[Rfam]
RNA sequence: UGAGAGAACUCUGCUGAAGGAACUAGGCAAAAUGGUACCGUAACUUCGGGAGAAGGUACGCUGCCGAUGGUGAUAAGACUUGCUCUUUGAGCUGUUGGCAGUCGCAGAUACCAGGUGGCUGCAACUGUUUAUUAAAAACACAGCACUCUGCAAACACGAAAGUGGACGUAUAGGGUGUGAUGCCUGCCCGGUGCUGGAAGGUUAAAUGAUGGGGUUAGCGUAAGCGAAGCUCUUGAUUGAAGCCCCAGUAAACGGCGGCCGUAACUAUAACGGUCCUAAGGUAGCGAAAUUCCUUGUCGGGUAAGUUCCGACCUGCACGAAUGGCAUAAUGAUGGCCACGCUGUCUCCAGCAGAGACUCA
Numbered sequence: 001u002g003a004g005a006g007a008a009c010u011c012u013g014c015u016g017a018a019g020g021a022a023c024u025a026g027g028c029a030a031a032a033u034g035g036u037a038c039c040g041u042a043a044c045u046u047c048g049g050g051a052g053a054a055g056g057u058a059c060g061c062u063g064c065c066g067a068u069g070g071u072g073a074u075a076a077g078a079c080u081u082g083c084u085c086u087u088u089g090a091g092c093u094g095u096u097g098g099c100a101g102u103c104g105c106a107g108a109u110a111c112c113a114g115g116u117g118g119c120u121g122c123a124a125c126u127g128u129u130u131a132u133u134a135a136a137a138a139c140a141c142a143g144c145a146c147u148c149u150g151c152a153a154a155c156a157c158g159a160a161a162g163u164g165g166a167c168g169u170a171u172a173g174g175g176u177g178u179g180a181u182g183c184c185u186g187c188c189c190g191g192u193g194c195u196g197g198a199a200g201g202u203u204a205a206a207u208g209a210u211g212g213g214g215u216u217a218g219c220g221u222a223a224g225c226g227a228a229g230c231u232c233u234u235g236a237u238u239g240a241a242g243c244c245c246c247a248g249u250a251a252a253c254g255g256c257g258g259c260c261g262u263a264a265c266u267a268u269a270a271c272g273g274u275c276c277u278a279a280g281g282u283a284g285c286g287a288a289a290u291u292c293c294u295u296g297u298c299g300g301g302u303a304a305g306u307u308c309c310g311a312c313c314u315g316c317a318c319g320a321a322u323g324g325c326a327u328a329a330u331g332a333u334g335g336c337c338a339c340g341c342u343g344u345c346u347c348c349a350g351c352a353g354a355g356a357c358u359c360a
Stems, first nucleotide, its partner, number of pairs: 001360004009355008018346003035059005044049001060102012103107001115339007122331002126140003143178008151168001155164003181326004186256003191253002193249005200244003206238001211233005218225002257275006276280001286313001296312006
RNA: Bacterial large subunit ribosomal RNA, nucleotides 1927 to 2286